[Rfam]
Manganese Mn2+ riboswitch aptamer (yybP-ykoY): a 118-nucleotide RNA sequence from Sphingorhabdus wooponensis. Lineage of the source: Bacteria > Pseudomonadota > Alphaproteobacteria > Sphingorhabdaceae > Sphingorhabdus. It scores 60 bits against the family's covariance model.
Nucleotides: 118
Stems, first nucleotide, its partner, number of pairs: 027043003045085010062075005087118008
Number, partner (000 for none) and nucleotide at each position: 001000a002000g003000g004000a005000c006000a007000g008000u009000c010000a011000u012000c013000u014000g015000g016000g017000g018000a019000g020000u021000a022000g023000c024000c025000a026000g027043u028042c029041g030000u031000u032000c033000c034000a035000c036000c037000c038000g039000a040000a041029c042028g043027a044000g045085a046084c047083a048082u049081g050080c051079a052078u053077c054076a055000a056000c057000a058000u059000a060000u061000u062075u063074g064073g065072c066071c067000g068000a069000g070000a071066g072065g073064u074063c075062a076054u077053g078052g079051u080050g081049c082048a083047u084046g085045u086000g087118g088117g089116a090115c091114c092113a093112c094111a095000a096000g097000g098000u099000c100000g101000a102000a103000a104000a105000a106000g107000a108000u109000c110000a111094u112093g113092u114091g115090g116089u117088u118087c

This RNA was originally discovered in E. coli during a large scale screen and was named SraF. The family was later found to exist upstream of related families of protein genes in many bacteria, including the the yybP and ykoK genes in B. subtilis.